[Rfam]
RNA: Small nucleolar RNA U54
Nucleotides: 087
Base pairs, nucleotide, nucleotide: 002086003085004084005083
Number, partner (000 for none) and nucleotide at each position: 001000u002086g003085c004084u005083c006000a007000a008000u009000g010000a011000u012000u013000g014000u015000u016000u017000g018000c019000c020000c021000u022000u023000u024000g025000a026000g027000g028000c029000g030000a031000u032000a033000u034000a035000c036000g037000c038000u039000a040000u041000u042000c043000u044000g045000a046000u047000g048000c049000u050000u051000c052000u053000c054000a055000u056000g057000a058000u059000u060000g061000a062000a063000a064000a065000a066000u067000c068000a069000a070000c071000a072000a073000u074000c075000u076000g077000u078000g079000a080000u081000g082000a083005g084004a085003g086002c087000u